[Rfam]
RNA sequence: AUUUCUCUGUUUUAAUUUGGAAUGAUGCCUUCUUUAGCAUCAAGCAUUGCAAAAGACAAUUUUCUGUUAAAACAAA
Numbered sequence: 001a002u003u004u005c006u007c008u009g010u011u012u013u014a015a016u017u018u019g020g021a022a023u024g025a026u027g028c029c030u031u032c033u034u035u036a037g038c039a040u041c042a043a044g045c046a047u048u049g050c051a052a053a054a055g056a057c058a059a060u061u062u063u064c065u066g067u068u069a070a071a072a073c074a075a076a
Base pairs, nucleotide, nucleotide: 011071012070013069014068015067016066019064020063021062022061023042024041025040026039027038028037046060047059048058049057
rpsL sRNA: a 76-nucleotide sequence from Glaucidium brasilianum.
Lineage of the source: Eukaryota > Opisthokonta > Eumetazoa > Dipnotetrapodomorpha > Glaucidium.
Rfam classes the family as a small RNA.
For this family Rfam cites "Identification of candidate structured RNAs in the marine organism 'Candidatus Pelagibacter ubique'" (Meyer et al., BMC Genomics, 2009).